This 137-nucleotide sequence from Chitinophaga oryziterrae belongs to the Rfam family "Group II catalytic intron D1-D4-4".
A reference for the family is Chu et al. (2001), "Control of branch-site choice by a group II intron", EMBO J.
The source organism's lineage runs through Bacteria, Pseudomonadati, Bacteroidota, Chitinophagaceae and Chitinophaga.
About the family: Group II introns are found in rRNA, tRNA and mRNA of organelles in fungi, plants and protists, and also in mRNA in bacteria.
Its family is annotated with Group II intron splicing in the Gene Ontology.
RNA sequence: CAAUGGGUGCAAGUCCCAUCAGAGUAAAAGUCAAAGCUCUGUAGCUAAAUGACAUGGGAGGAAGAAAUGAAUUUCAUGAAGCUCAUUGAAAAGUGAUCUGUAAAGCAGGUUAUGCAAAUUACCAGGCCGUAACGAAA
Numbered sequence: 001c002a003a004u005g006g007g008u009g010c011a012a013g014u015c016c017c018a019u020c021a022g023a024g025u026a027a028a029a030g031u032c033a034a035a036g037c038u039c040u041g042u043a044g045c046u047a048a049a050u051g052a053c054a055u056g057g058g059a060g061g062a063a064g065a066a067a068u069g070a071a072u073u074u075c076a077u078g079a080a081g082c083u084c085a086u087u088g089a090a091a092a093g094u095g096a097u098c099u100g101u102a103a104a105g106c107a108g109g110u111u112a113u114g115c116a117a118a119u120u121a122c123c124a125g126g127c128c129g130u131a132a133c134g135a136a137a
Stems, first nucleotide, its partner, number of pairs: 020041005048087005053078006063068001095111006114130002